[Rfam]
Nucleotides: 156
Stems, first nucleotide, its partner, number of pairs: 003053004008048003015042004019037002022034001024033002062083003065079001067077003093149007101141002107135003111131004117126003
Number, partner (000 for none) and nucleotide at each position: 001000a002000u003053g004052g005051u006050u007000g008048a009047g010046g011000u012000a013000a014000u015042g016041g017040c018039u019037c020036c021000u022034g023000u024033g025032u026000g027000g028000c029000a030000g031000u032025a033024c034022c035000u036020g037019g038000c039018a040017g041016c042015u043000u044000a045000g046010c047009c048008u049000u050006g051005a052004c053003c054000u055000a056000g057000a058000u059000u060000a061000a062083u063082c064081u065079g066000u067077g068076g069075g070000c071000u072000u073000a074000u075069u076068c077067c078000u079065u080000u081064g082063g083062g084000g085000a086000a087000g088000g089000c090000c091000c092000u093149u094148g095147c096146a097145g098144u099143a100000g101141c102140a103000g104000g105000u106000g107135u108134g109133a110000a111131c112130a113129u114128u115000c116000a117126a118125g119124c120000a121000g122000u123000a124119g125118u126117u127000u128114g129113a130112u131111g132000a133109u134108c135107a136000u137000g138000u139000a140102u141101g142000a143099u144098a145097c146096u147095g148094c149093a150000c151000a152000c153000a154000c155000a156000a

Rfam assigns this 156-nucleotide RNA sequence from Geotrypetes seraphini to the family "Small Cajal body specific RNA 16". A reference for the family is Darzacq et al. (2002), "Cajal body-specific small nuclear RNAs: a novel class of 2'-O-methylation and pseudouridylation guide RNAs", EMBO J. The match comes from Rfam's covariance-model search (116 bits). Lineage of the source: Eukaryota > Deuterostomia > Tetrapoda > Gymnophiona > Geotrypetes. From the family's description: scaRNAs are a specific class of small nuclear RNAs which localise to the Cajal bodies and guide the modification of RNA polymerase II transcribed spliceosomal RNAs U1, U2, U4, U5 and U12. ACA47 belongs to the H/ACA box class of guide RNAs as it has the predicted hairpin-hinge-hairpin-tail structure, the conserved H/ACA-box motifs and is found associated with GAR1. ACA47 is predicted to guide the pseudouridylation of residue U5 of the U1 spliceosomal snRNA.